Rfam assigns this 104-nucleotide sequence from Ziziphus jujuba to the family "mir-395 microRNA precursor family".
mir-395 was identified in both Arabidopsis thaliana and Oryza sativa computationally and was later experimentally verified. mir-395 is thought to target mRNAs coding for ATP sulphurylases. The mature sequence is excised from the 3' arm of the hairpin.
On this family, see Jones-Rhoades and Bartel, Mol Cell 2004: "Computational Identification of Plant MicroRNAs and Their Targets, Including a Stress-Induced miRNA".
The family has 25 seed sequences and 2,798 matches in Rfam 15.1.
The family's consensus secondary structure was predicted with PFOLD.
A search with the family's covariance model found it, with a score of 62 bits.
RNA sequence: CUGUUCCCAAGAGUUCCCCUCAUCACUUCAUCGGAGCAAAUUUAAGAAAAAUGGGGUAAUUAAGUUUGUACUGCUGAAGUGUUUGGGGGGACUCCCGGUGACAU
Numbered sequence: 001c002u003g004u005u006c007c008c009a010a011g012a013g014u015u016c017c018c019c020u021c022a023u024c025a026c027u028u029c030a031u032c033g034g035a036g037c038a039a040a041u042u043u044a045a046g047a048a049a050a051a052u053g054g055g056g057u058a059a060u061u062a063a064g065u066u067u068g069u070a071c072u073g074c075u076g077a078a079g080u081g082u083u084u085g086g087g088g089g090g091a092c093u094c095c096c097g098g099u100g101a102c103a104u
Base pairs, nucleotide, nucleotide: 005100007098008097011094012093013092014091015090016089017088018087019086020085022084024081025080026079027078028077029076030075032073033072034071